[Rfam]
RNA sequence: UCUGUGGAUCGUCACAUCAAAUGAGAGUAGUUGUUGAUAGUAAUAUCACAACAAAAUCAGACGGGAUGAAACAGAAA
Dot-bracket structure: (((((...(((((........(((.....(((...((........))..)))....))))))))......)))))..
Numbered sequence: 001u002c003u004g005u006g007g008a009u010c011g012u013c014a015c016a017u018c019a020a021a022u023g024a025g026a027g028u029a030g031u032u033g034u035u036g037a038u039a040g041u042a043a044u045a046u047c048a049c050a051a052c053a054a055a056a057u058c059a060g061a062c063g064g065g066a067u068g069a070a071a072c073a074g075a076a077a
Stems, first nucleotide, its partner, number of pairs: 001075005009064005022059003030052003036047002